Record summary:
Shown here is a 176-nucleotide RNA from Oryza barthii, a member of the family "MIR807 microRNA precursor family". The base pairs follow the family's consensus structure, which was predicted with WAR. The literature on the family includes a 2006 paper in FEBS Lett by Luo et al., "Rice embryogenic calli express a unique set of microRNAs, suggesting regulatory roles of microRNAs in plant post-embryogenic development". The source organism's lineage runs through Eukaryota, Streptophytina, Spermatophyta, Oryzeae and Oryza. The match comes from Rfam's covariance-model search (176 bits).
[Rfam]
Nucleotides: 176
Stems, first nucleotide, its partner, number of pairs: 001176007009168007017160003021156008030147004035142005041136008051126002054123002057120002063114003069108011086097002
Number, partner (000 for none) and nucleotide at each position: 001176a002175a003174c004173c005172a006171c007170a008000c009168u010167a011166u012165c013164a014163a015162u016000g017160a018159a019158u020000g021156g022155a023154u024153u025152c026151a027150c028149c029000g030147g031146u032145g033144a034000g035142a036141u037140g038139a039138c040000g041136u042135g043134g044133u045132u046131g047130u048129u049000c050000c051126a052125c053000c054123u055122a056000u057120g058119a059000u060000g061000a062000g063114g064113a065112c066000g067000u068000g069108g070107c071106a072105u073104c074103c075102u076101a077100u078099u079098g080000a081000u082000u083000u084000u085000g086097u087096g088000c089000g090000a091000u092000g093000g094000c095000u096087u097086g098079u099078a100077a101076u102075a103074g104073g105072a106071u107070g108069c109000c110000a111000c112065g113064u114063u115000c116000u117000u118000g119058u120057c121000c122055u123054a124000a125052g126051u127000g128000g129048a130047a131046c132045a133044a134043c135042c136041a137000c138039g139038u140037c141036a142035u143000a144033u145032c146031a147030c148000g149028g150027g151026u152025g153024a154023a155022u156021c157000c158019a159018u160017u161000c162015a163014u164013u165012g166011a167010u168009a169000g170007u171006g172005u173004g174003g175002u176001u